[Rfam]
RNA: Small nucleolar RNA SNORA77
Organism: Trichechus manatus
Nucleotides: 127
Base pairs, nucleotide, nucleotide: 001055002054003053004052005051006050014042015041016040017039018038019037020036022033023032024031067118068117069116070115071114072113073112075110076109077108078107079106080105085101086100087099
Number, partner (000 for none) and nucleotide at each position: 001055g002054c003053a004052g005051a006050c007000u008000c009000a010000c011000u012000c013000u014042g015041c016040a017039u018038c019037c020036g021000a022033c023032u024031g025000c026000a027000g028000u029000c030000c031024c032023a033022g034000g035000c036020c037019g038018g039017g040016u041015g042014c043000u044000u045000u046000u047000u048000c049000u050006g051005u052004c053003u054002g055001c056000c057000a058000g059000a060000g061000a062000a063000a064000c065000c066000g067118u068117c069116c070115a071114g072113g073112c074000u075110g076109u077108u078107g079106c080105g081000a082000g083000c084000a085101c086100c087099u088000c089000g090000g091000c092000c093000u094000g095000u096000c097000u098000g099087a100086g101085g102000c103000a104000g105080c106079g107078c108077a109076g110075c111000u112073g113072c114071c115070u116069g117068g118067g119000g120000a121000c122000a123000u124000g125000c126000a127000u